[Rfam]
RNA sequence: CAUUUGUGAGAACCUUUUGAAUCACUAUAGUGAUUCAAAAGGUUCUCA
Numbered sequence: 001c002a003u004u005u006g007u008g009a010g011a012a013c014c015u016u017u018u019g020a021a022u023c024a025c026u027a028u029a030g031u032g033a034u035u036c037a038a039a040a041g042g043u044u045c046u047c048a
Stems, first nucleotide, its partner, number of pairs: 007048018